[Rfam]
RNA sequence: UCGCGGGUGGAAGUCCCGCCAUGGUAAAAGCCGGAGCCAUGUAGCUAUAAUGGCAGCUUGAUAUGGAAACGUAACGAGCUGAAGCCCAUUGAUAAAGUCCGCUAUAAGGCGGGCGAGCAAAUAUCCGGGUUGUAACUAAU
Number, nucleotide and partner (000 for none) at each position: 001u000002c000003g000004c000005g000006g000007g000008u000009g000010g000011a000012a000013g000014u000015c000016c000017c000018g000019c000020c041021a040022u039023g038024g037025u000026a000027a000028a000029a000030g000031c000032c000033g000034g000035a000036g000037c024038c023039a022040u021041g020042u000043a000044g000045c000046u000047a000048u000049a090050a089051u088052g087053g086054c081055a080056g079057c078058u077059u076060g000061a000062u000063a072064u000065g070066g000067a000068a000069a000070c065071g000072u063073a000074a000075c000076g059077a058078g057079c056080u055081g054082a000083a000084g000085c000086c053087c052088a051089u050090u049091g000092a000093u000094a000095a000096a000097g114098u113099c112100c111101g110102c109103u000104a000105u000106a000107a000108g000109g102110c101111g100112g099113g098114c097115g000116a000117g133118c132119a131120a000121a000122u000123a000124u000125c000126c000127g000128g000129g000130u000131u119132g118133u117134a000135a000136c000137u000138a000139a000140u000

Rfam assigns this 140-nucleotide RNA sequence from Candidatus Scalindua japonica to the family "Group II catalytic intron D1-D4-4".
Pairs were carried over by alignment from the consensus structure.
On this family, see Bonen and Vogel, Trends Genet 2001: "The ins and outs of group II introns".
Lineage of the source: Bacteria > Pseudomonadati > Candidatus Brocadiia > Candidatus Scalinduaceae > Candidatus Scalindua.